A member of the RNA family "DUF2815 RNA", 65 nucleotides long.
The base pairs follow the family's consensus structure, which is taken from published work.
By type it is a small RNA.

[Rfam]
RNA sequence: AGGGUGCCGAUUCAGCUCCUUUAAGUCUGAGUCACUAAAAAUGUAAAAAGGUAAAAAUUAUUAUG
Numbered sequence: 001a002g003g004g005u006g007c008c009g010a011u012u013c014a015g016c017u018c019c020u021u022u023a024a025g026u027c028u029g030a031g032u033c034a035c036u037a038a039a040a041a042u043g044u045a046a047a048a049a050g051g052u053a054a055a056a057a058u059u060a061u062u063a064u065g
Stems, first nucleotide, its partner, number of pairs: 001020004009033007